The record is a 166-nucleotide RNA sequence from Cohnella xylanilytica, which matches "c-di-AMP riboswitch aptamer (ydaO/yuaA leader)" in Rfam.
[Rfam]
RNA sequence: UAUUCGCAAUCGCUGAAUCCUUGAGCUCAAGGAACGGGGGAACCAACGGAAGCCGGCGGACGGCUUCCCGGGGUGAAUCGCCGGACAUGCCCGUCAUGCCCGGCGUAGGGCGACUCUUACGCCCGAAUCCGUCAGCUAACCUCGUAAGCGUGUCAAGAGAGGCAAC
Numbered sequence: 001u002a003u004u005c006g007c008a009a010u011c012g013c014u015g016a017a018u019c020c021u022u023g024a025g026c027u028c029a030a031g032g033a034a035c036g037g038g039g040g041a042a043c044c045a046a047c048g049g050a051a052g053c054c055g056g057c058g059g060a061c062g063g064c065u066u067c068c069c070g071g072g073g074u075g076a077a078u079c080g081c082c083g084g085a086c087a088u089g090c091c092c093g094u095c096a097u098g099c100c101c102g103g104c105g106u107a108g109g110g111c112g113a114c115u116c117u118u119a120c121g122c123c124c125g126a127a128u129c130c131g132u133c134a135g136c137u138a139a140c141c142u143c144g145u146a147a148g149c150g151u152g153u154c155a156a157g158a159g160a161g162g163c164a165a166c
Stems, first nucleotide, its partner, number of pairs: 011150004018033006034145006044070001071130003079105006108124004